This 26-nucleotide sequence from Budvicia aquatica belongs to the Rfam family "L25-Gammaproteobacteria ribosomal protein leader". It is annotated as a cis-regulatory leader. The base pairs follow the family's consensus structure, which is taken from published work.

RNA sequence: CUCGCAGCUGGGUCGCCUGUUGCGGG
Numbered sequence: 001c002u003c004g005c006a007g008c009u010g011g012g013u014c015g016c017c018u019g020u021u022g023c024g025g026g
Stems, first nucleotide, its partner, number of pairs: 001026008010017002